The record is a 63-nucleotide RNA sequence from Paenibacillus graminis, which matches "Fluoride riboswitch aptamer (crcB RNA motif)" in Rfam.
Lineage of the source: Bacteria > Bacilli > Caryophanales > Paenibacillaceae > Paenibacillus.
RNA sequence: AUUCAAUACGGCGAUGGAGUUCGCCAUUAACCGUCUUUAGAGACUAAUGACUCCUACCAGCGG
Number, nucleotide and partner (000 for none) at each position: 001a000002u000003u000004c000005a000006a000007u000008a000009c000010g025011g024012c023013g022014a000015u000016g054017g053018a052019g051020u050021u049022c013023g012024c011025c010026a000027u000028u000029a000030a000031c000032c000033g044034u043035c042036u041037u000038u000039a000040g000041a036042g035043a034044c033045u000046a000047a000048u000049g021050a020051c019052u018053c017054c016055u000056a000057c000058c000059a000060g000061c000062g000063g000